Overview
The record is a 206-nucleotide sequence from Saccharomyces uvarum, which matches "Small nucleolar RNA snR35" in Rfam.
RNA sequence: AUACAAAAUUAAUCGUGCGGAUUAAUAAUCCAGGACUAUAAAACCGUGUUGUUUAUAUCGAGUCUUUUUCGGUAUAAGCGUCAAGUCUAUCGGAGAGAUCAAAAAAUUUCGUUCAUCUUAACGCCCUUUUGUGUAGAAAGUCGAGCAGAGUGCAAACUCUUCUUGGCAUUGAAACUUUUACGCAAGGGCUGGUAGGACAGACAUGC
Numbered sequence: 001a002u003a004c005a006a007a008a009u010u011a012a013u014c015g016u017g018c019g020g021a022u023u024a025a026u027a028a029u030c031c032a033g034g035a036c037u038a039u040a041a042a043a044c045c046g047u048g049u050u051g052u053u054u055a056u057a058u059c060g061a062g063u064c065u066u067u068u069u070c071g072g073u074a075u076a077a078g079c080g081u082c083a084a085g086u087c088u089a090u091c092g093g094a095g096a097g098a099u100c101a102a103a104a105a106a107u108u109u110c111g112u113u114c115a116u117c118u119u120a121a122c123g124c125c126c127u128u129u130u131g132u133g134u135a136g137a138a139a140g141u142c143g144a145g146c147a148g149a150g151u152g153c154a155a156a157c158u159c160u161u162c163u164u165g166g167c168a169u170u171g172a173a174a175c176u177u178u179u180a181c182g183c184a185a186g187g188g189c190u191g192g193u194a195g196g197a198c199a200g201a202c203a204u205g206c
Stems, first nucleotide, its partner, number of pairs: 008026007029094003033088004051079012116197005123189005130184008141172004145162001147160005
Rfam links the family to the GO terms RNA processing and nucleolus. Pairs were carried over by alignment from the consensus structure, which was predicted with WAR. By type it is an H/ACA-box small nucleolar RNA. It is one of the family's seed sequences.